[Rfam]
RNA sequence: AGAUGAGAGAUACACCCCGCCCACGGGAAACCGCGGGCGAGACCAGGCCGCGGUCUCCCCAACCUCGCCCUGGUCGUGCCGUCGCGCACACACCCGGAGCUUCCGGCUCCGGAUCUCCUCACCGAUCGGA
Numbered sequence: 001a002g003a004u005g006a007g008a009g010a011u012a013c014a015c016c017c018c019g020c021c022c023a024c025g026g027g028a029a030a031c032c033g034c035g036g037g038c039g040a041g042a043c044c045a046g047g048c049c050g051c052g053g054u055c056u057c058c059c060c061a062a063c064c065u066c067g068c069c070c071u072g073g074u075c076g077u078g079c080c081g082u083c084g085c086g087c088a089c090a091c092a093c094c095c096g097g098a099g100c101u102u103c104c105g106g107c108u109c110c111g112g113a114u115c116u117c118c119u120c121a122c123c124g125a126u127c128g129g130a
Stems, first nucleotide, its partner, number of pairs: 004121004009117002018039005024033003042074006049067002052064003076089004094112007122129002
A member of the RNA family "Streptomyces RNA 5676" from Streptomyces poonensis, 130 nucleotides long.
It is annotated as a small RNA.
NCBI's taxonomy places the organism under Bacteria, Bacillati, Actinomycetota, Streptomycetaceae, Streptomyces.
On this family, see Vockenhuber et al., RNA Biol 2011: "Deep sequencing-based identification of small non-coding RNAs in Streptomyces coelicolor".
Rfam's curators write: Identified by deep sequencing of transcriptome at the end of exponential growth phase. Appears longer on northern blot than sequencing transcript.